Shown here is an 84-nucleotide sequence from Bombyx mori, a member of the family "mir-2807 microRNA precursor family". A search with the family's covariance model found it, with a score of 57 bits. Lineage of the source: Eukaryota > Neoptera > Amphiesmenoptera > Bombycidae > Bombyx. Its family is annotated with miRNA-mediated post-transcriptional gene silencing and RISC complex in the Gene Ontology. The literature on the family includes a 2010 paper in BMC Genomics by Liu et al., "MicroRNAs of Bombyx mori identified by Solexa sequencing".
RNA sequence: UUAACUCAAAUUUGUAUGCAGUUGGAACAGCGCCCCUAAUGGCAAACAUAGGCAAACGUUUCGAUUCCAUACAAAAUUUAGUUA
Dot-bracket structure: .......((.((((((.(.(((((((((.....((....(.....)....)).....))))))))).).)))))).))......